[Rfam]
Shown here is a 46-nucleotide RNA from Armadillidium nasatum, a member of the family "Histone 3' UTR stem-loop". The source organism's lineage runs through Eukaryota, Panarthropoda, Mandibulata, Isopoda and Armadillidium. The mRNAs of metazoan histone genes lack a poly-A tail. 3' end processing occurs at a site between a highly conserved stem-loop (modelled by this family) and a purine rich region around 20 nts downstream (the histone downstream element, or HDE). The stem-loop is bound by a 31 kDa stem-loop binding protein (SLBP - also termed the histone hairpin binding protein, or HBP). Together with U7 snRNA binding of the HDE, SLBP binding nucleate s the formation of the processing complex. The histone 3' UTR stem-loop is also involved in nucleocytoplasmic transport of the mRNA, and in stability regulation and translation efficiency in the cytoplasm.

RNA sequence: AAAAAGGCUCCAUUUGGAGCCACAAAUUAUAAUAAAGAGAUAACAU
Numbered sequence: 001a002a003a004a005a006g007g008c009u010c011c012a013u014u015u016g017g018a019g020c021c022a023c024a025a026a027u028u029a030u031a032a033u034a035a036a037g038a039g040a041u042a043a044c045a046u
Stems, first nucleotide, its partner, number of pairs: 006021006